[Rfam]
RNA sequence: GCCCCCAUCGUCUAAUGGUUAGGACACCAGCUUCUCAAGCUGGAAAUACCGGUUCGAAUCCGGUUGGGGGCA
Numbered sequence: 001g002c003c004c005c006c007a008u009c010g011u012c013u014a015a016u017g018g019u020u021a022g023g024a025c026a027c028c029a030g031c032u033u034c035u036c037a038a039g040c041u042g043g044a045a046a047u048a049c050c051g052g053u054u055c056g057a058a059u060c061c062g063g064u065u066g067g068g069g070g071c072a
Stems, first nucleotide, its partner, number of pairs: 001071007010025004027043005048064005
Rfam assigns this 72-nucleotide sequence from bacterium HR35 to the family "tRNA". It scores 71 bits against the family's covariance model.